A member of the RNA family "Bacterial RNase P class A" from Nocardioides pocheonensis, 374 nucleotides long.
RNA sequence: UGGGCUGGCCGGGCGACCGCGGGGAGGCGACUCCUCGAGGAAGGUCCGGGCUCCACAGGGCAGGGUGGUGGCCAACAGCCACCCGAGGUGACUCGCGGGACAGUGCCACAGAGAACAGACCGCCACCGCCUCCGGGCGGUGGUAAGGGUGAAACGGUGGUGCAAGAGACCACCAGCGCGACGGGCGACCGUCGUGGCUCGGCAAACCCCACCUGGAGCAAGACCAGACAGCGAGCGUUCGAGGGCGGCCCGCCCGAGCUCGCGGGUAGGUCGCACGAGGGUGUCGGCAACGGCACUCCGAGAUGGAUGGUCGCCAACCACGUCGUCGUGAGGCGGCGUGGCGAACAGAACCCGGCCUAUGAGCCAGCCCAUCCG
Dot-bracket structure: (((((((((.((((((((.(((((((....)))))))....[[[.[[[[[((((...[[[[.((((((((((.....)))))(((((....)))).)((...(((((............(((((((((((....)))))))))..)).......((((((.......)))))).(((((((((....)))))))).)..)))..)))))))))))))...((((.....((((((......((((.]]]]))))..)))))).....))))......((((((((....))))))))..........)))))))...................................]]]]]]]].)..)))))))))....
Numbered sequence: 001u002g003g004g005c006u007g008g009c010c011g012g013g014c015g016a017c018c019g020c021g022g023g024g025a026g027g028c029g030a031c032u033c034c035u036c037g038a039g040g041a042a043g044g045u046c047c048g049g050g051c052u053c054c055a056c057a058g059g060g061c062a063g064g065g066u067g068g069u070g071g072c073c074a075a076c077a078g079c080c081a082c083c084c085g086a087g088g089u090g091a092c093u094c095g096c097g098g099g100a101c102a103g104u105g106c107c108a109c110a111g112a113g114a115a116c117a118g119a120c121c122g123c124c125a126c127c128g129c130c131u132c133c134g135g136g137c138g139g140u141g142g143u144a145a146g147g148g149u150g151a152a153a154c155g156g157u158g159g160u161g162c163a164a165g166a167g168a169c170c171a172c173c174a175g176c177g178c179g180a181c182g183g184g185c186g187a188c189c190g191u192c193g194u195g196g197c198u199c200g201g202c203a204a205a206c207c208c209c210a211c212c213u214g215g216a217g218c219a220a221g222a223c224c225a226g227a228c229a230g231c232g233a234g235c236g237u238u239c240g241a242g243g244g245c246g247g248c249c250c251g252c253c254c255g256a257g258c259u260c261g262c263g264g265g266u267a268g269g270u271c272g273c274a275c276g277a278g279g280g281u282g283u284c285g286g287c288a289a290c291g292g293c294a295c296u297c298c299g300a301g302a303u304g305g306a307u308g309g310u311c312g313c314c315a316a317c318c319a320c321g322u323c324g325u326c327g328u329g330a331g332g333c334g335g336c337g338u339g340g341c342g343a344a345c346a347g348a349a350c351c352c353g354g355c356c357u358a359u360g361a362g363c364c365a366g367c368c369c370a371u372c373c374g
Stems, first nucleotide, its partner, number of pairs: 001370009011359001012314007020037007042357003046354005051217004058250004063213005068082005083097001084095004098208002103206002105202003120147002122143009155173006175197001176195008221271004230262006242254004278297008
Taxonomically the source falls in Nocardioides (Bacteria, Bacillati, Actinomycetes, Nocardioidaceae). It is annotated as a ribozyme.